[Rfam]
RNA sequence: CAGACAAUCCGGUAGGUAAGGCUACUGUAGGGAUAUGGGUUGCUGCCGCAAAAGGAUGGAGACAUCCUGCGCUGGUUGAACAGGUCCAGUCGAAUUCAAGGCUGAACAUAAUGCAACUUCACCGCCCUGCGAAGCUAAAGCUCAGACGGUGGACCCUAUU
Numbered sequence: 001c002a003g004a005c006a007a008u009c010c011g012g013u014a015g016g017u018a019a020g021g022c023u024a025c026u027g028u029a030g031g032g033a034u035a036u037g038g039g040u041u042g043c044u045g046c047c048g049c050a051a052a053a054g055g056a057u058g059g060a061g062a063c064a065u066c067c068u069g070c071g072c073u074g075g076u077u078g079a080a081c082a083g084g085u086c087c088a089g090u091c092g093a094a095u096u097c098a099a100g101g102c103u104g105a106a107c108a109u110a111a112u113g114c115a116a117c118u119u120c121a122c123c124g125c126c127c128u129g130c131g132a133a134g135c136u137a138a139a140g141c142u143c144a145g146a147c148g149g150u151g152g153a154c155c156c157u158a159u160u
Stems, first nucleotide, its partner, number of pairs: 008153003011147001013099001015142003020136003026131007039117005045076003048072002055066004084107002089102003